[Rfam]
RNA sequence: GCCGGGUGUGGUGGCGCGCGCCUGUAAUCCAAGUUUCCUGGAGGCUGAGGCUGGAGGAUGGUUGGAGCUCAGGAACUCUGUGCUGCAGUGGACUAUGCUGAUCGGGUGUCUGCACUCAGUUCAGUAUCGACAUGGUCUUCCUGGGGGAGCCCAGGACAACCAGGUCGUCUAAGGAGGGGUGAAUCGGCCCAGGUCGGAAACGGAGCAGGUCAAAGCCCACGUGCUGAUCAAAAGUGGGAUCGCACCUGAGAGUAGACGCUGCAGCACAGCCGGAGUUACUCAUCCAGACCCAGCCUUUU
Numbered sequence: 001g002c003c004g005g006g007u008g009u010g011g012u013g014g015c016g017c018g019c020g021c022c023u024g025u026a027a028u029c030c031a032a033g034u035u036u037c038c039u040g041g042a043g044g045c046u047g048a049g050g051c052u053g054g055a056g057g058a059u060g061g062u063u064g065g066a067g068c069u070c071a072g073g074a075a076c077u078c079u080g081u082g083c084u085g086c087a088g089u090g091g092a093c094u095a096u097g098c099u100g101a102u103c104g105g106g107u108g109u110c111u112g113c114a115c116u117c118a119g120u121u122c123a124g125u126a127u128c129g130a131c132a133u134g135g136u137c138u139u140c141c142u143g144g145g146g147g148a149g150c151c152c153a154g155g156a157c158a159a160c161c162a163g164g165u166c167g168u169c170u171a172a173g174g175a176g177g178g179g180u181g182a183a184u185c186g187g188c189c190c191a192g193g194u195c196g197g198a199a200a201c202g203g204a205g206c207a208g209g210u211c212a213a214a215g216c217c218c219a220c221g222u223g224c225u226g227a228u229c230a231a232a233a234g235u236g237g238g239a240u241c242g243c244a245c246c247u248g249a250g251a252g253u254a255g256a257c258g259c260u261g262c263a264g265c266a267c268a269g270c271c272g273g274a275g276u277u278a279c280u281c282a283u284c285c286a287g288a289c290c291c292a293g294c295c296u297u298u299u
Base pairs, nucleotide, nucleotide: 001045002044003043004023005022006021007020008019009018010017028042029041030040047297048296049295050294051293052292053291054290059286060285061284063282064281066277067276068275069274070273072271073270078269079268080267081266082265083264084263085262086261087260088259089258090257093255094254095253096252098250102249103248104247105246106245107244108243109242110238111237113236114235115234116233119229121227122226123225124224125223126222127221128167129166130165131164133162134161135160136159139156140155141154142153143152144151145150168174169173177218178217179216180215186211187210188209189208194203195202196201